[Rfam]
RNA sequence: AAACAAUAUUAGUGGAUGAAAAAGAGUUUUUAAGGUUAUCUAAUGAUGAAAAUUUAAUAUGUGAAUCUCAGACGAUAGAAAGUAAUAAUUCUGUCGUCUUUUUU
Numbered sequence: 001a002a003a004c005a006a007u008a009u010u011a012g013u014g015g016a017u018g019a020a021a022a023a024g025a026g027u028u029u030u031u032a033a034g035g036u037u038a039u040c041u042a043a044u045g046a047u048g049a050a051a052a053u054u055u056a057a058u059a060u061g062u063g064a065a066u067c068u069c070a071g072a073c074g075a076u077a078g079a080a081a082g083u084a085a086u087a088a089u090u091c092u093g094u095c096g097u098c099u100u101u102u103u104u
Base pairs, nucleotide, nucleotide: 004048005047007045008044009043010042014041015040016039017038021037022036027034028033070099071098072097073096074095075094076093077092078091079090
RNA: Streptococcus sRNA SpF39
Organism: Peptoniphilus sp. oral taxon 375